About this RNA:
The record is a 53-nucleotide RNA from Galdieria sulphuraria, which matches "Plastid-psbl-rps4 3UTR RNA" in Rfam. The base pairs follow the family's consensus structure, which was predicted with LocARNA. Plastid psbl-rps4-psbC is a non-coding RNA (ncRNA) present in plastids. It is compose of two short stem-loops in tandem in the terminal 3 prime untranslate region (3UTR) mostly in psbl and rps4 seed plants genes. The family's RNA type in Rfam is cis-regulatory element.
[Rfam]
Nucleotides: 053
Base pairs, nucleotide, nucleotide: 009025010024011023012022013021027043028042029041030040031039
Number, partner (000 for none) and nucleotide at each position: 001000a002000g003000g004000a005000g006000a007000g008000a009025g010024a011023g012022g013021g014000a015000u016000u017000c018000g019000a020000a021013c022012c023011c024010u025009c026000g027043g028042u029041a030040c031039a032000a033000a034000u035000a036000a037000a038000a039031u040030g041029u042028a043027c044000g045000a046000c047000a048000g049000a050000u051000u052000a053000g